[Rfam]
RNA sequence: GAUUGCUAAGCGCUUAAUCUCCUUCUAUAGGGGAUCGGGGGAACCAAACAAGGUAAGUGAUCAUGAUGUGAGAGUCAUGCUCUUGCCGAUUGGGGUGAAUCUUGUACUUCAUGUACAGGUAGGGCGACUCUCACCGCCCGAAUCCGUCAGCUAACCUCGACAGCGUAGUACUAAGUACAG
Number, nucleotide and partner (000 for none) at each position: 001g000002a000003u000004u000005g000006c000007u000008a000009a000010g000011c165012g164013c163014u162015u000016a000017a000018u034019c033020u032021c031022c030023u029024u000025c000026u000027a000028u000029a023030g022031g021032g020033g019034a018035u160036c159037g158038g157039g156040g155041g000042a000043a000044c000045c092046a091047a000048a000049c000050a000051a000052g000053g000054u000055a000056a000057g000058u000059g000060a000061u000062c000063a000064u000065g000066a000067u000068g000069u000070g000071a000072g000073a000074g000075u000076c000077a000078u000079g000080c000081u000082c000083u000084u000085g000086c000087c000088g000089a000090u000091u046092g045093g145094g144095g143096u000097g000098a000099a000100u000101c119102u118103u117104g116105u000106a000107c000108u000109u000110c000111a000112u000113g000114u000115a000116c104117a103118g102119g101120u000121a000122g139123g138124g137125c136126g000127a000128c000129u000130c000131u000132c000133a000134c000135c000136g125137c124138c123139c122140g000141a000142a000143u095144c094145c093146g000147u000148c000149a000150g000151c000152u000153a000154a000155c040156c039157u038158c037159g036160a035161c000162a014163g013164c012165g011166u000167a000168g000169u000170a000171c000172u000173a000174a000175g000176u000177a000178c000179a000180g000

The family of this 180-nucleotide RNA sequence from Paenibacillus albiflavus is "c-di-AMP riboswitch aptamer (ydaO/yuaA leader)". Rfam links the family to the GO terms regulation of gene expression and cyclic-di-AMP binding.